A member of the RNA family "Cyano-2 RNA", 215 nucleotides long. The sequence is in the family's curated seed alignment.

[Rfam]
RNA sequence: AGCAGCACGGGAGAGCGACCCGUGGCUGGCAGACAAUCCAGCCCCCAUCCCACGGCAACUGUGGAUAGGGGCUGGCUUUCUGCGCUUAACCCCGUCUUCAAAUAAAGGGAAAGAUUCAGUGCAUUGCACUUGAUUGCACAACUUCUCGCCAGCGUUAGGGAACGGACCGCAUCGCUCGGGGCGAACAUCUUUCUCCUCGCGGUUCCGUAGUCCCG
Numbered sequence: 001a002g003c004a005g006c007a008c009g010g011g012a013g014a015g016c017g018a019c020c021c022g023u024g025g026c027u028g029g030c031a032g033a034c035a036a037u038c039c040a041g042c043c044c045c046c047a048u049c050c051c052a053c054g055g056c057a058a059c060u061g062u063g064g065a066u067a068g069g070g071g072c073u074g075g076c077u078u079u080c081u082g083c084g085c086u087u088a089a090c091c092c093c094g095u096c097u098u099c100a101a102a103u104a105a106a107g108g109g110a111a112a113g114a115u116u117c118a119g120u121g122c123a124u125u126g127c128a129c130u131u132g133a134u135u136g137c138a139c140a141a142c143u144u145c146u147c148g149c150c151a152g153c154g155u156u157a158g159g160g161a162a163c164g165g166a167c168c169g170c171a172u173c174g175c176u177c178g179g180g181g182c183g184a185a186c187a188u189c190u191u192u193c194u195c196c197u198c199g200c201g202g203u204u205c206c207g208u209a210g211u212c213c214c215g
Stems, first nucleotide, its partner, number of pairs: 003028004007023005029083005035077001040073006047066004162208004166203005178198004183193003